[Rfam]
RNA sequence: CCGAGGCGCGCUCUAGCAGCACAUCAUGUUUUGCAGAUUUGUGCUGAAUCACUCCAAAUCAUUAUGUGCUGCCACCGUGAGCCCCGG
Numbered sequence: 001c002c003g004a005g006g007c008g009c010g011c012u013c014u015a016g017c018a019g020c021a022c023a024u025c026a027u028g029u030u031u032u033g034c035a036g037a038u039u040u041g042u043g044c045u046g047a048a049u050c051a052c053u054c055c056a057a058a059u060c061a062u063u064a065u066g067u068g069c070u071g072c073c074a075c076c077g078u079g080a081g082c083c084c085c086g087g
Stems, first nucleotide, its partner, number of pairs: 001087003005083002014074001016072009026062003030058004035053002

The record is an 87-nucleotide RNA from Sphaeramia orbicularis, which matches "mir-15 microRNA precursor family" in Rfam. Lineage of the source: Eukaryota > Eurypterygia > Percomorphaceae > Apogonidae > Sphaeramia. The literature on the family includes a 2001 paper in Science by Lagos-Quintana et al., "Identification of novel genes coding for small expressed RNAs". This family represents the related mir-15a and mir-15b sequences. In humans miR-15a and miR-16 are clustered within 0.5 kb at 13q14. This region has been shown to be deleted in more than half of B cell chronic lymphocytic leukaemias (CLL). Both miR-15a and miR-16 are deleted or down-regulated in more than two thirds of CLL cases. The mature sequence is excised from the 5' arm of the hairpin. Rfam links the family to the GO terms miRNA-mediated post-transcriptional gene silencing and RISC complex. A search with the family's covariance model found it, with a score of 59 bits. The base pairs follow the family's consensus structure, which was predicted with RNAalifold.